[Rfam]
Nucleotides: 076
Base pairs, nucleotide, nucleotide: 001074002073003072004071005070006069008067009066010065011064012063013062014061015060017058018057019056020055021054022053023052024051025050026049027048029046031044033042034041035040
Number, partner (000 for none) and nucleotide at each position: 001074a002073c003072c004071g005070c006069g007000c008067g009066c010065u011064u012063a013062c014061c015060u016000a017058c018057u019056a020055u021054a022053u023052a024051g025050u026049a027048g028000c029046u030000g031044a032000g033042a034041u035040g036000c037000a038000u039000g040035u041034a042033u043000u044031u045000a046029a047000c048027c049026u050025a051024c052023u053022a054021u055020a056019u057018a058017g059000u060015a061014g062013g063012u064011a065010a066009g067008u068000a069006u070005g071004c072003g073002g074001u075000u076000u
The record is a 76-nucleotide sequence from Ameiurus melas, which matches "mir-7563 microRNA precursor family" in Rfam. The organism belongs to Ameiurus, within Eukaryota. Its family is annotated with miRNA-mediated post-transcriptional gene silencing and RISC complex in the Gene Ontology. The base pairs follow the family's consensus structure, which was predicted with RNAalifold.